L17-Actino-Proteobacteria ribosomal protein leader: a 73-nucleotide RNA from Actinomadura rifamycini. Rfam classes the family as a cis-regulatory leader. A reference for the family is Eckert and Weinberg (2020), "Discovery of 20 novel ribosomal leader candidates in bacteria and archaea", BMC Microbiol. NCBI's taxonomy places the organism under Bacteria, Bacillati, Streptosporangiales, Actinomadura, Actinomadura rifamycini.
RNA sequence: CCGGCGGCCGGGGGCUCGUUCCCCGGCCGUCCCGGGACUCGACUGACGCCGGUACCUGAUACGGCCGGCGCAG
Numbered sequence: 001c002c003g004g005c006g007g008c009c010g011g012g013g014g015c016u017c018g019u020u021c022c023c024c025g026g027c028c029g030u031c032c033c034g035g036g037a038c039u040c041g042a043c044u045g046a047c048g049c050c051g052g053u054a055c056c057u058g059a060u061a062c063g064g065c066c067g068g069c070g071c072a073g
Base pairs, nucleotide, nucleotide: 001035002034003033004032005029006028007027008026009025010024011023012022013021014020043073044072045071047070048069049068050067051066052065053064